[Rfam]
RNA sequence: UGCCCGGUCGUCUAAUGGCAGGACAGCGGCCUUUGGAGCCGUCGGUGGUGGUUCGAAUCCAUCCCGGGCAG
Numbered sequence: 001u002g003c004c005c006g007g008u009c010g011u012c013u014a015a016u017g018g019c020a021g022g023a024c025a026g027c028g029g030c031c032u033u034u035g036g037a038g039c040c041g042u043c044g045g046u047g048g049u050g051g052u053u054c055g056a057a058u059c060c061a062u063c064c065c066g067g068g069c070a071g
Base pairs, nucleotide, nucleotide: 001070002069003068004067005066006065007064010024011023012022013021026042027041028040029039030038047063048062049061050060051059
Rfam assigns this 71-nucleotide sequence from bacterium HR16 to the family "tRNA". Rfam links the family to the GO term triplet codon-amino acid adaptor activity. From the family's description: Transfer RNA (tRNA) molecules are approximately 80 nucleotides in length. By type it is a transfer RNA. Clan: tRNA clan. The base pairs follow the family's consensus structure, which is taken from published work.